[Rfam]
Nucleotides: 083
Base pairs, nucleotide, nucleotide: 004080005079006078007077
Number, partner (000 for none) and nucleotide at each position: 001000g002000u003000u004080g005079g006078u007077a008000a009000a010000u011000g012000a013000u014000g015000u016000u017000a018000a019000a020000a021000a022000u023000u024000u025000g026000u027000c028000a029000u030000u031000c032000u033000a034000u035000a036000g037000a038000c039000u040000g041000a042000u043000g044000u045000u046000u047000u048000g049000a050000u051000g052000a053000a054000c055000a056000a057000a058000a059000a060000c061000u062000c063000c064000g065000c066000u067000u068000a069000u070000u071000a072000u073000c074000u075000g076000a077007u078006g079005c080004c081000u082000u083000c

Rfam assigns this 83-nucleotide RNA from Medicago truncatula to the family "Small nucleolar RNA R16". A reference for the family is Galardi et al. (2002), "Purified box C/D snoRNPs are able to reproduce site-specific 2'-O-methylation of target RNA in vitro", Mol Cell Biol. Its family is annotated with RNA processing and nucleolus in the Gene Ontology. Pairs were carried over by alignment from the consensus structure, which was predicted with PFOLD. Rfam 15.1 lists 884 matches to the family in 222 species.